[Rfam]
RNA sequence: UUUGCCAGUGGGAAUGAAGUCCUCCCCCGCCCGGUCUUCGGCCGGUGCAAACCGCCCAAAGUUUUUUGAGCUGAUGACUUCUGCCGCCUU
Numbered sequence: 001u002u003u004g005c006c007a008g009u010g011g012g013a014a015u016g017a018a019g020u021c022c023u024c025c026c027c028c029g030c031c032c033g034g035u036c037u038u039c040g041g042c043c044g045g046u047g048c049a050a051a052c053c054g055c056c057c058a059a060a061g062u063u064u065u066u067u068g069a070g071c072u073g074a075u076g077a078c079u080u081c082u083g084c085c086g087c088c089u090u
Stems, first nucleotide, its partner, number of pairs: 010026004016081006054071002057068004
The record is a 90-nucleotide RNA sequence from Gemmiger sp. An120, which matches "Fluoride riboswitch aptamer (crcB RNA motif)" in Rfam. NCBI's taxonomy places the organism under Bacteria, Bacillati, Bacillota, Oscillospiraceae, Gemmiger.